MIR7486 microRNA precursor family: an 87-nucleotide RNA from Gossypium laxum.
[Rfam]
RNA sequence: CACGUCAGCGCGACCUACUGACGUGGAAGGAAAUCGCUCCCUCAAGGACGCGAUUUCCUUCCACGUAAGCAGGUCACGCUGACGUGG
Numbered sequence: 001c002a003c004g005u006c007a008g009c010g011c012g013a014c015c016u017a018c019u020g021a022c023g024u025g026g027a028a029g030g031a032a033a034u035c036g037c038u039c040c041c042u043c044a045a046g047g048a049c050g051c052g053a054u055u056u057c058c059u060u061c062c063a064c065g066u067a068a069g070c071a072g073g074u075c076a077c078g079c080u081g082a083c084g085u086g087g
Stems, first nucleotide, its partner, number of pairs: 001086010012075005018069002021066001023064015040047002
The base pairs follow the family's consensus structure, which was predicted with RNAalifold.